[Rfam]
RNA sequence: GAGUGAUUUCAGCUCUUUUAGAAUUUGUCCAGUAGGUUUCCCGCGUUGCCGGGAAGCCGCU
Numbered sequence: 001g002a003g004u005g006a007u008u009u010c011a012g013c014u015c016u017u018u019u020a021g022a023a024u025u026u027g028u029c030c031a032g033u034a035g036g037u038u039u040c041c042c043g044c045g046u047u048g049c050c051g052g053g054a055a056g057c058c059g060c061u
Base pairs, nucleotide, nucleotide: 035058036057037056038055039054040053041052042051043050
RNA: U7 small nuclear RNA